[Rfam]
RNA sequence: AAAAAGGGUUGGUUGGCUAUGUAUGCCAUGCAUUUCUAUUAAUUGAUAGGCGUUGUAUGGUUAUCAAGACAUAGCUGACAUAAUUUAUGGAUGAUAUACGGUUGGCUUGCUUGGCUAACCACCCUU
Numbered sequence: 001a002a003a004a005a006g007g008g009u010u011g012g013u014u015g016g017c018u019a020u021g022u023a024u025g026c027c028a029u030g031c032a033u034u035u036c037u038a039u040u041a042a043u044u045g046a047u048a049g050g051c052g053u054u055g056u057a058u059g060g061u062u063a064u065c066a067a068g069a070c071a072u073a074g075c076u077g078a079c080a081u082a083a084u085u086u087a088u089g090g091a092u093g094a095u096a097u098a099c100g101g102u103u104g105g106c107u108u109g110c111u112u113g114g115c116u117a118a119c120c121a122c123c124c125u126u
Stems, first nucleotide, its partner, number of pairs: 008079005014028004029052003033048001035046002038043001053074001056073004098126001100124002103121003107118002109115002
Dot-bracket structure: .......(((((.((((.......))))(((.(.((.(....).)).).)))(..((((..........))))))))))..................(.((.(((.((((...)).))))).)).)
The record is a 126-nucleotide sequence from Dendrobium nobile, which matches "U11 spliceosomal RNA" in Rfam.
NCBI's taxonomy places the organism under Eukaryota, Viridiplantae, Magnoliopsida, Dendrobiinae, Dendrobium.
A search with the family's covariance model found it, with a score of 46 bits.